[Rfam]
RNA: permuted transfer-messenger RNA
Organism: Devosia sp. I507
RNA sequence: GGCGAUAAACUGUCAUUGUAAUAAACCCAUCGGACCCGGGGGCAGUACCCGGCGUCUCCACCAUCUCCCCUCCUUUCGGGGAGGAGCCAAUGGGGACGAAACAGGAUCGACGAGGGCGUAAAGAGUGUGCUUUCGCUCGGCAUUGUACCGCCGUUAUCGGGCUAAAACUUAUAGUUGCCAAUGACAACCAUAAGGCUCCGGUCGCUCUCGCCGCGUAA
Numbered sequence: 001g002g003c004g005a006u007a008a009a010c011u012g013u014c015a016u017u018g019u020a021a022u023a024a025a026c027c028c029a030u031c032g033g034a035c036c037c038g039g040g041g042g043c044a045g046u047a048c049c050c051g052g053c054g055u056c057u058c059c060a061c062c063a064u065c066u067c068c069c070c071u072c073c074u075u076u077c078g079g080g081g082a083g084g085a086g087c088c089a090a091u092g093g094g095g096a097c098g099a100a101a102c103a104g105g106a107u108c109g110a111c112g113a114g115g116g117c118g119u120a121a122a123g124a125g126u127g128u129g130c131u132u133u134c135g136c137u138c139g140g141c142a143u144u145g146u147a148c149c150g151c152c153g154u155u156a157u158c159g160g161g162c163u164a165a166a167a168c169u170u171a172u173a174g175u176u177g178c179c180a181a182u183g184a185c186a187a188c189c190a191u192a193a194g195g196c197u198c199c200g201g202u203c204g205c206u207c208u209c210g211c212c213g214c215g216u217a218a
Stems, first nucleotide, its partner, number of pairs: 001137005014127004026116003030113003036052005053098007138153004